[Rfam]
RNA sequence: CUUCCCAUUGAUUUGCUGCUCCGGUCUUCCAGUGACCGGAGCGGUUAUACGCGUGGGAGACAACAACGUAGGCCGUUGUCAGCGGAGGUGGAGUGACCGUUCCAUCUCGUCUGCGCGGCCCAGACAUCG
Numbered sequence: 001c002u003u004c005c006c007a008u009u010g011a012u013u014u015g016c017u018g019c020u021c022c023g024g025u026c027u028u029c030c031a032g033u034g035a036c037c038g039g040a041g042c043g044g045u046u047a048u049a050c051g052c053g054u055g056g057g058a059g060a061c062a063a064c065a066a067c068g069u070a071g072g073c074c075g076u077u078g079u080c081a082g083c084g085g086a087g088g089u090g091g092a093g094u095g096a097c098c099g100u101u102c103c104a105u106c107u108c109g110u111c112u113g114c115g116c117g118g119c120c121c122a123g124a125c126a127u128c129g
Base pairs, nucleotide, nucleotide: 003058004057005056006055007054008053015045016044017043018042019041020040021039023036025035026034069122071120072119073118074117075116077115078114079113085108086107087106088105089104090103091102092101093100094099